This 112-nucleotide sequence from Rhodopseudomonas palustris belongs to the Rfam family "Guanidine-I riboswitch aptamer". Rfam 15.1 lists 1,509 matches to the family in 1,281 species. This family represents a conserved RNA structure found upstream of the ykkC and yxkD genes in Bacillus subtilis and related genes in other bacteria. The function of this family is unclear although it has been suggested that it may function to switch on efflux pumps and detoxification systems in response to harmful environmental molecules.

[Rfam]
RNA sequence: GGAGUUGGCUGCUAGGGUUCCGGCCUUGCGUGAUGCAGGGUGCUGGUCCGAGAGCGGCCGCUUGCGGGGGAGACAUCCUCGCAGGACACGGCGGGACAAAAGCCCGGGAGAC
Numbered sequence: 001g002g003a004g005u006u007g008g009c010u011g012c013u014a015g016g017g018u019u020c021c022g023g024c025c026u027u028g029c030g031u032g033a034u035g036c037a038g039g040g041u042g043c044u045g046g047u048c049c050g051a052g053a054g055c056g057g058c059c060g061c062u063u064g065c066g067g068g069g070g071a072g073a074c075a076u077c078c079u080c081g082c083a084g085g086a087c088a089c090g091g092c093g094g095g096a097c098a099a100a101a102g103c104c105c106g107g108g109a110g111a112c
Stems, first nucleotide, its partner, number of pairs: 007059006015049002020046002022043001023041006061085009087107001089110001093105003